[Rfam]
RNA sequence: GCUGGGCGCGGUGGUGCGCGCCUGUAAUCCAGCGACUUGGAGGCCAGGUGUCGGGAUCCCGCUGGAUGGGGGGUUCUGAUUGUGGCUGGUUCAUGUUGAUCGGGCGUCCGAGUUAAGCACGGCGCCGAUAUGGAUCGGUCUCCGGAGGGAGGCGGGUCCAGGUCGAGGCCACUUUCCCGGUGGCCGCAUAAGGAGGGGCGAACAGGCCCAGGGGGGAAACCCAGCAGGCAAAAGUCCCCGCGUGGUGCAGUAGCAGGGUAGCGCCUGUGAAUGGCUAGCCAUGACCGGCCCCGUCUGCGCGUGGAGACCUCCGCCAUU
Dot-bracket structure: ((((((((((......)))))))....(((........))))))..((((..((..(((...(((((((((....(((.(((((((((..((((.(....(((((((((..((((.((((.((((((((.((((((.((((((....)))))).)))))).)))).............................(((((......(((....(((....)))....)))....))))).)))).))))..)))).))...))))))).).)))).))))))))).)))))))))))).....)))..))..))))...